Shown here is a 266-nucleotide RNA sequence from Streptomyces sp. NRRL WC-3605, a member of the family "Streptomyces sRNA 4677". The base pairs follow the family's consensus structure. It scores 96 bits against the family's covariance model.
RNA sequence: CGGAACGGGGCCGCGGGCGGUAAAAGACCAAAGAACCCAGGGAAAAAACCAACCAACCAAACCAAACCCGGCAUCCGUCACUCGGGCGGGUGAAUGUGGUCGGUCCGGCUGGUGCAGCGGCCCUUGGAGCGUGCAGGCUCAGCCCGAGGCGGUCGCGGCAUAUGCGCCGGACGAACGCCCUCAUGACUCCCCAUAUGCAUCGGCCCCCGCCGGGACGGCAAUCCCAGUGCGAGGGCCUGACCAACGAGGAAGAAGUGAGCUUCCCC
Numbered sequence: 001c002g003g004a005a006c007g008g009g010g011c012c013g014c015g016g017g018c019g020g021u022a023a024a025a026g027a028c029c030a031a032a033g034a035a036c037c038c039a040g041g042g043a044a045a046a047a048a049c050c051a052a053c054c055a056a057c058c059a060a061a062c063c064a065a066a067c068c069c070g071g072c073a074u075c076c077g078u079c080a081c082u083c084g085g086g087c088g089g090g091u092g093a094a095u096g097u098g099g100u101c102g103g104u105c106c107g108g109c110u111g112g113u114g115c116a117g118c119g120g121c122c123c124u125u126g127g128a129g130c131g132u133g134c135a136g137g138c139u140c141a142g143c144c145c146g147a148g149g150c151g152g153u154c155g156c157g158g159c160a161u162a163u164g165c166g167c168c169g170g171a172c173g174a175a176c177g178c179c180c181u182c183a184u185g186a187c188u189c190c191c192c193a194u195a196u197g198c199a200u201c202g203g204c205c206c207c208c209g210c211c212g213g214g215a216c217g218g219c220a221a222u223c224c225c226a227g228u229g230c231g232a233g234g235g236c237c238u239g240a241c242c243a244a245c246g247a248g249g250a251a252g253a254a255g256u257g258a259g260c261u262u263c264c265c266c
Stems, first nucleotide, its partner, number of pairs: 007245001010242001016072001018070002078093006108176001110174001112172001202237005208231003212225004248264005